Shown here is a 93-nucleotide sequence from Salvator merianae, a member of the family "Vault RNA". Taxonomically the source falls in Salvator (Eukaryota, Deuterostomia, Dipnotetrapodomorpha, Teiidae). Rfam's curators write: This family of RNAs are found as part of the enigmatic vault ribonucleoprotein complex. It scores 52 bits against the family's covariance model.

[Rfam]
RNA sequence: AGGCCAGCUUAGCUAAGCGGUUACUUCGUGUCAGAUACACCUUCAACUCGCUUCUAGCAAGUCCGAGACCCGCGGGCACUGCCUGGCCUCAAA
Dot-bracket structure: .((((((....(((..((((....((((...................................))))..)))).))).....)))))).....